[Rfam]
RNA sequence: CAUCUCACUACAUCCCCGCGACUAAUGACAACCUUCACGUCAGGCUGGAACCAGUCCAGAAAGAAACAUAAAGUUUCUCAUUAGCCGCGCGAACCUCUGUAGCGAACGGCGACGACAAAGUAGGUAAUACAUUACUCUGUUUUGCAAGCACUUCCUAGAAGAAAGUGGCCCUAUGAGGCCCCUUUCC
Numbered sequence: 001c002a003u004c005u006c007a008c009u010a011c012a013u014c015c016c017c018g019c020g021a022c023u024a025a026u027g028a029c030a031a032c033c034u035u036c037a038c039g040u041c042a043g044g045c046u047g048g049a050a051c052c053a054g055u056c057c058a059g060a061a062a063g064a065a066a067c068a069u070a071a072a073g074u075u076u077c078u079c080a081u082u083a084g085c086c087g088c089g090c091g092a093a094c095c096u097c098u099g100u101a102g103c104g105a106a107c108g109g110c111g112a113c114g115a116c117a118a119a120g121u122a123g124g125u126a127a128u129a130c131a132u133u134a135c136u137c138u139g140u141u142u143u144g145c146a147a148g149c150a151c152u153u154c155c156u157a158g159a160a161g162a163a164a165g166u167g168g169c170c171c172u173a174u175g176a177g178g179c180c181c182c183u184u185u186c187c
Stems, first nucleotide, its partner, number of pairs: 001108001003106001006104001010100003017091004022084007112140002165182001167180004

The record is a 187-nucleotide RNA sequence from Candidatus Symbiopectobacterium sp. PLON1, which matches "SraG RNA" in Rfam.
This RNA was discovered in E. coli during a large scale screen. Evidence was found for specific cleavage of this RNA.
The literature on the family includes a 2001 paper in Curr Biol by Argaman et al., "Novel small RNA-encoding genes in the intergenic regions of Escherichia coli".
NCBI's taxonomy places the organism under Bacteria, Pseudomonadati, Gammaproteobacteria, ant, tsetse, mealybug, aphid, etc. endosymbionts, Symbiopectobacterium.
The base pairs follow the family's consensus structure, which was predicted with PFOLD.
Rfam classes the family as a small RNA.